[Rfam]
RNA sequence: UAUUGUGGUGGUUUCUGCAUUUGGCAGAUCUGUCACUAUAGCAGAGCGGCCUUAAACUACCACAGAGAUCAGAAUGGAGAAGGCUGUGCUGAGAACUUUUUCAAGCUUUUGGUUUUCAGCCUUUUUCAGCUCCUACAGAA
Numbered sequence: 001u002a003u004u005g006u007g008g009u010g011g012u013u014u015c016u017g018c019a020u021u022u023g024g025c026a027g028a029u030c031u032g033u034c035a036c037u038a039u040a041g042c043a044g045a046g047c048g049g050c051c052u053u054a055a056a057c058u059a060c061c062a063c064a065g066a067g068a069u070c071a072g073a074a075u076g077g078a079g080a081a082g083g084c085u086g087u088g089c090u091g092a093g094a095a096c097u098u099u100u101u102c103a104a105g106c107u108u109u110u111g112g113u114u115u116u117c118a119g120c121c122u123u124u125u126u127c128a129g130c131u132c133c134u135a136c137a138g139a140a
Stems, first nucleotide, its partner, number of pairs: 005063007023051003027047001029045004076133004103125003
Shown here is a 140-nucleotide RNA sequence from Larus smithsonianus, a member of the family "Small nucleolar RNA SNORA12". U108 belongs to the H/ACA family of snoRNAs. The sequence is predicted to guide the pseudouridylation of the U372 residue in the 28S rRNA subunit. However it has not been reported as a pseudouridylation site. NCBI's taxonomy places the organism under Eukaryota, Dinosauria, Coelurosauria, Charadriiformes, Larus. The family has 23 seed sequences and 571 matches in Rfam 15.1.